Rfam assigns this 128-nucleotide sequence from Coprococcus eutactus to the family "FMN riboswitch aptamer (RFN element)". It scores 102 bits against the family's covariance model. The RFN element is a highly conserved domain that is found frequently in the 5'-untranslated regions of prokaryotic mRNAs that encode for flavin mononucleotide (FMN) biosynthesis and transport proteins. Pairs were carried over by alignment from the consensus structure, which is taken from published work.
RNA sequence: AUAGAUCUUCGGGGGUGAGUGCAAUUCUCCACCGACGGUGUUAGGGAAACCUUAAGUCCGUGAGCCAUGAGGCAUGAUCCGGUGUGAUUCCGGGACCGACAGUAUAGUCUGGAUGAGAGAAGUAUUAU
Numbered sequence: 001a002u003a004g005a006u007c008u009u010c011g012g013g014g015g016u017g018a019g020u021g022c023a024a025u026u027c028u029c030c031a032c033c034g035a036c037g038g039u040g041u042u043a044g045g046g047a048a049a050c051c052u053u054a055a056g057u058c059c060g061u062g063a064g065c066c067a068u069g070a071g072g073c074a075u076g077a078u079c080c081g082g083u084g085u086g087a088u089u090c091c092g093g094g095a096c097c098g099a100c101a102g103u104a105u106a107g108u109c110u111g112g113a114u115g116a117g118a119g120a121a122g123u124a125u126u127a128u
Stems, first nucleotide, its partner, number of pairs: 003126002007122004017029003031108002033098002035061004056096002066072001078094005100111003